[Rfam]
RNA: Streptococcus sRNA SpF59 (ldcC RNA)
Nucleotides: 054
Stems, first nucleotide, its partner, number of pairs: 001046005006021004
Number, partner (000 for none) and nucleotide at each position: 001046g002045g003044a004043c005042c006021a007020c008019u009018c010000u011000u012000u013000u014000a015000u016000u017000c018009g019008a020007g021006u022000c023000a024000a025000g026000g027000c028000c029000a030000u031000a032000c033000g034000g035000a036000c037000a038000g039000c040000c041000g042005g043004g044003u045002c046001c047000a048000c049000u050000g051000c052000c053000g054000a